[Rfam]
RNA sequence: UUCCCGUGCAUGUCCGGGUUAUGACAUGAACCUCCCUGUUGGACUGGCCCGGGCUUCGGCUCGGGCCUUUUU
Numbered sequence: 001u002u003c004c005c006g007u008g009c010a011u012g013u014c015c016g017g018g019u020u021a022u023g024a025c026a027u028g029a030a031c032c033u034c035c036c037u038g039u040u041g042g043a044c045u046g047g048c049c050c051g052g053g054c055u056u057c058g059g060c061u062c063g064g065g066c067c068u069u070u071u072u
Stems, first nucleotide, its partner, number of pairs: 009028006047066008
Shown here is a 72-nucleotide RNA sequence from Shimia marina, a member of the family "Singlet oxygen resistance RNA X". It scores 77 bits against the family's covariance model. Rfam's curators write: SorX (RSs2461)like SorY is a singlet oxygen induced sRNA that counteracts oxidative stress by targeting mRNA for a transporter in Rhodobacter. It also has an impact on resistance against organic hydroperoxides. It targets SD sequence of potA mRNA via an aSD sequence. The aSD sequence and some neighbouring nucleotides are identical to the one of SorY (targets takP mRNA). Its family is annotated with response to photooxidative stress in the Gene Ontology. Rfam classes the family as a small RNA. Pairs were carried over by alignment from the consensus structure.